Burkholderia RNA 11: a 122-nucleotide RNA sequence from Roseateles aquatilis.
RNA sequence: GCAACCUCAGGCUCGCGCACGAGCAGCUGGCGGUGUUCCGCUCGUUGCUGGGGAUCUCGUGGAUGUGGUUCUUCGGCGCGGUGUUCCUGGCCAACUUUCCGGCCUUCGCCAAGGAGGUGCUG
Numbered sequence: 001g002c003a004a005c006c007u008c009a010g011g012c013u014c015g016c017g018c019a020c021g022a023g024c025a026g027c028u029g030g031c032g033g034u035g036u037u038c039c040g041c042u043c044g045u046u047g048c049u050g051g052g053g054a055u056c057u058c059g060u061g062g063a064u065g066u067g068g069u070u071c072u073u074c075g076g077c078g079c080g081g082u083g084u085u086c087c088u089g090g091c092c093a094a095c096u097u098u099c100c101g102g103c104c105u106u107c108g109c110c111a112a113g114g115a116g117g118u119g120c121u122g
Base pairs, nucleotide, nucleotide: 010049011048012047014044015043017041018040021038022037023036024035025034051121052120054118055117057115058114060112062110063105065103067099068098072094075091077089078088080087081086

By type it is a small RNA.
Co-purified with Hfq, expression confirmed by Northern blot. Predicted target marZ. Overlaps coding sequence.
The source organism's lineage runs through Bacteria, Pseudomonadati, Betaproteobacteria, Burkholderiales and Roseateles.
A search with the family's covariance model found it, with a score of 90 bits.